[Rfam]
RNA sequence: UUAAUUGAAUAUGAAUCGCCUAAGACUCAGGUGGCUUAAUUGCCUUAACCAUGCCUGCCGAGGAGUUUAACGACUUUUCCUUAUGUUUUGGCGAGCAUAGGGAUUUUUUAUUAGGUCC
Numbered sequence: 001u002u003a004a005u006u007g008a009a010u011a012u013g014a015a016u017c018g019c020c021u022a023a024g025a026c027u028c029a030g031g032u033g034g035c036u037u038a039a040u041u042g043c044c045u046u047a048a049c050c051a052u053g054c055c056u057g058c059c060g061a062g063g064a065g066u067u068u069a070a071c072g073a074c075u076u077u078u079c080c081u082u083a084u085g086u087u088u089u090g091g092c093g094a095g096c097a098u099a100g101g102g103a104u105u106u107u108u109u110a111u112u113a114g115g116u117c118c
Stems, first nucleotide, its partner, number of pairs: 028057005033044003078103010
Rfam assigns this 118-nucleotide RNA from Fructilactobacillus lindneri to the family "Ribosomal protein L10 leader". The match comes from Rfam's covariance-model search (66 bits). The source organism's lineage runs through Bacteria, Bacilli, Lactobacillales, Lactobacillaceae and Fructilactobacillus lindneri. Pairs were carried over by alignment from the consensus structure, which was predicted with CMfinder. Rfam classes the family as a cis-regulatory leader.